[Rfam]
RNA sequence: CCCCUAGAAGAUGAAGAACUGGUGGAAUACAUCAUCACCGGUCUAGGCGAAGAUUUCUCGUCGAUCGUCUCCGCUCUAUGUGCUAGAGUGGAACCCAUCUCAGUUGGUGAGCUCUACUCUCAACUCCUUAAUUUCGAAA
Numbered sequence: 001c002c003c004c005u006a007g008a009a010g011a012u013g014a015a016g017a018a019c020u021g022g023u024g025g026a027a028u029a030c031a032u033c034a035u036c037a038c039c040g041g042u043c044u045a046g047g048c049g050a051a052g053a054u055u056u057c058u059c060g061u062c063g064a065u066c067g068u069c070u071c072c073g074c075u076c077u078a079u080g081u082g083c084u085a086g087a088g089u090g091g092a093a094c095c096c097a098u099c100u101c102a103g104u105u106g107g108u109g110a111g112c113u114c115u116a117c118u119c120u121c122a123a124c125u126c127c128u129u130a131a132u133u134u135c136g137a138a139a
Base pairs, nucleotide, nucleotide: 005137007135008134093108094107095106097104098103
This 139-nucleotide sequence from Panicum virgatum belongs to the Rfam family "Small nucleolar RNA Z247". Gene Ontology terms of the family: nucleolus and RNA processing. Lineage of the source: Eukaryota > Viridiplantae > Spermatophyta > Poaceae > Panicum sect. Hiantes. A reference for the family is Chen et al. (2003), "The high diversity of snoRNAs in plants: identification and comparative study of 120 snoRNA genes from Oryza sativa", Nucleic Acids Res. The match comes from Rfam's covariance-model search (41 bits). The base pairs follow the family's consensus structure, which was predicted with PFOLD. The family's RNA type in Rfam is C/D-box small nucleolar RNA.